This 90-nucleotide RNA from Eragrostis curvula belongs to the Rfam family "Small nucleolar RNA R44/J54/Z268 family".
RNA sequence: GGAGCAGGUGAUGAGAACAAGACAGGGACAUCAGACCCUCUUCUGGGCGUGAUAGACUAAAGUCUUCAAUGGGAAUCUCUCUGAUGCUUU
Numbered sequence: 001g002g003a004g005c006a007g008g009u010g011a012u013g014a015g016a017a018c019a020a021g022a023c024a025g026g027g028a029c030a031u032c033a034g035a036c037c038c039u040c041u042u043c044u045g046g047g048c049g050u051g052a053u054a055g056a057c058u059a060a061a062g063u064c065u066u067c068a069a070u071g072g073g074a075a076u077c078u079c080u081c082u083g084a085u086g087c088u089u090u
Stems, first nucleotide, its partner, number of pairs: 002089005
NCBI's taxonomy places the organism under Eukaryota, Tracheophyta, Spermatophyta, Chloridoideae, Eragrostis.
It scores 79 bits against the family's covariance model.